The family of this 204-nucleotide RNA sequence from Oryza sativa is "MIR812 microRNA precursor family". Rfam's curators put it in the seed alignment. Rfam 15.1 lists 57,451 matches to the family in 24 species. The base pairs follow the family's consensus structure, which was predicted with RNAalifold.
RNA sequence: UUUAAGUGCAGCCAUGAUUUUCCGUGCACAACUUUAAUCGUCCGUUUUACUUGAAUUUUUUUUGAAAAAAAUGAAAAAGUAAGUCACGUAUAAAGUACUAUUCAUAUUUUAUCAUCCCAUAACAAUAAAAAUGCAAAUUAUAAAAAAAAUUCAAAUAAGACGGACGAUUAAAGUUGGGCAUGAAAACUUAUGGUUGCACUUAAA
Number, nucleotide and partner (000 for none) at each position: 001u000002u000003u000004a000005a000006g000007u000008g000009c000010a000011g000012c000013c000014a000015u000016g000017a000018u000019u000020u000021u000022c000023c000024g000025u000026g000027c178028a000029c176030a175031a174032c173033u172034u171035u170036a169037a168038u167039c166040g165041u164042c163043c162044g161045u160046u159047u158048u157049a156050c000051u000052u000053g000054a000055a000056u000057u000058u000059u000060u000061u000062u000063u000064g000065a000066a000067a000068a000069a000070a000071a000072u000073g000074a000075a000076a000077a000078a000079g000080u000081a000082a000083g000084u000085c000086a000087c000088g000089u000090a000091u000092a000093a000094a000095g000096u000097a000098c000099u000100a000101u000102u000103c000104a000105u000106a000107u000108u000109u000110u000111a000112u000113c000114a000115u000116c000117c000118c000119a000120u000121a000122a000123c000124a000125a000126u000127a000128a000129a000130a000131a000132u000133g000134c000135a000136a000137a000138u000139u000140a000141u000142a000143a000144a000145a000146a000147a000148a000149a000150u000151u000152c000153a000154a000155a000156u049157a048158a047159g046160a045161c044162g043163g042164a041165c040166g039167a038168u037169u036170a035171a034172a033173g032174u031175u030176g029177g000178g027179c000180a000181u000182g000183a000184a000185a000186a000187c000188u000189u000190a000191u000192g000193g000194u000195u000196g000197c000198a000199c000200u000201u000202a000203a000204a000